The family of this 80-nucleotide RNA sequence from Pelusios castaneus is "Small nucleolar RNA R38". Pairs were carried over by alignment from the consensus structure, which was predicted with PFOLD.
[Rfam]
RNA sequence: CAGCGCUGGUGAUGAUGCAGAGUUAUCCCUGUCUGAAAAAGAAACCUUCCUUUGUGGAUUUCUGACUCACUGAAGCGUAG
Numbered sequence: 001c002a003g004c005g006c007u008g009g010u011g012a013u014g015a016u017g018c019a020g021a022g023u024u025a026u027c028c029c030u031g032u033c034u035g036a037a038a039a040a041g042a043a044a045c046c047u048u049c050c051u052u053u054g055u056g057g058a059u060u061u062c063u064g065a066c067u068c069a070c071u072g073a074a075g076c077g078u079a080g
Stems, first nucleotide, its partner, number of pairs: 001080001003078005
It scores 49 bits against the family's covariance model.
snoR38 is a C/D box small nucleolar RNA conserved across yeast, human, Arabidopsis and rice.
Gene Ontology terms of the family: nucleolus and RNA processing.